[Rfam]
RNA sequence: CUCAAGGUAGCGCUUUGUCCACGUGGAUAGAAAAUACGUCCUUGAGGGCGCGCUUUCUGUCCAUGUGGACAAAGCGCUCCCUUGAGG
Numbered sequence: 001c002u003c004a005a006g007g008u009a010g011c012g013c014u015u016u017g018u019c020c021a022c023g024u025g026g027a028u029a030g031a032a033a034a035u036a037c038g039u040c041c042u043u044g045a046g047g048g049c050g051c052g053c054u055u056u057c058u059g060u061c062c063a064u065g066u067g068g069a070c071a072a073a074g075c076g077c078u079c080c081c082u083u084g085a086g087g
Stems, first nucleotide, its partner, number of pairs: 001086007009078013023064011035052001037050002040047002
The record is an 87-nucleotide RNA sequence from Gossypium lobatum, which matches "MIR7486 microRNA precursor family" in Rfam. A search with the family's covariance model found it, with a score of 83 bits.